[Rfam]
RNA sequence: CGUUGAGCGUAGAAGGACCCGAAGUAGUUUUGCAAAUCCCUUUUCAAGAGAGCUGACGGCAGGUGAAAGUCAGUAACUAUUUGCAGGCGAAUUACAGUCCGGAGCAUCUUUUAAGGCGCAUAUUUCCCUUAAAAGACGGUGGCAUUACCGUUAACAAUCCCAAGUGGCAUUUUUAUUAUGCAACAAGGGUGGUACCGCGAGUGGAAACUCGUCCCUUAU
Numbered sequence: 001c002g003u004u005g006a007g008c009g010u011a012g013a014a015g016g017a018c019c020c021g022a023a024g025u026a027g028u029u030u031u032g033c034a035a036a037u038c039c040c041u042u043u044u045c046a047a048g049a050g051a052g053c054u055g056a057c058g059g060c061a062g063g064u065g066a067a068a069g070u071c072a073g074u075a076a077c078u079a080u081u082u083g084c085a086g087g088c089g090a091a092u093u094a095c096a097g098u099c100c101g102g103a104g105c106a107u108c109u110u111u112u113a114a115g116g117c118g119c120a121u122a123u124u125u126c127c128c129u130u131a132a133a134a135g136a137c138g139g140u141g142g143c144a145u146u147a148c149c150g151u152u153a154a155c156a157a158u159c160c161c162a163a164g165u166g167g168c169a170u171u172u173u174u175a176u177u178a179u180g181c182a183a184c185a186a187g188g189g190u191g192g193u194a195c196c197g198c199g200a201g202u203g204g205a206a207a208c209u210c211g212u213c214c215c216u217u218a219u
Stems, first nucleotide, its partner, number of pairs: 007105002015100004027088003031085003042076002052074006108135007137150003167181004186216004197212005